RNA: MIR7504 microRNA precursor family
RNA sequence: AAUAGUUUAAUGCCACAUCAGCAUUUUCAUCUUAAAUUUUAGGAUUUUCAUCUUGAAAAAAAAUAAAUUCCAAAUGAAAAUACUAAAAUUGAGGAUAAAUUUGCUAAUGUGGCGUUAAACUAUU
Numbered sequence: 001a002a003u004a005g006u007u008u009a010a011u012g013c014c015a016c017a018u019c020a021g022c023a024u025u026u027u028c029a030u031c032u033u034a035a036a037u038u039u040u041a042g043g044a045u046u047u048u049c050a051u052c053u054u055g056a057a058a059a060a061a062a063a064u065a066a067a068u069u070c071c072a073a074a075u076g077a078a079a080a081u082a083c084u085a086a087a088a089u090u091g092a093g094g095a096u097a098a099a100u101u102u103g104c105u106a107a108u109g110u111g112g113c114g115u116u117a118a119a120c121u122a123u124u
Stems, first nucleotide, its partner, number of pairs: 001124018020105004026099002029096005035090005041084002045080004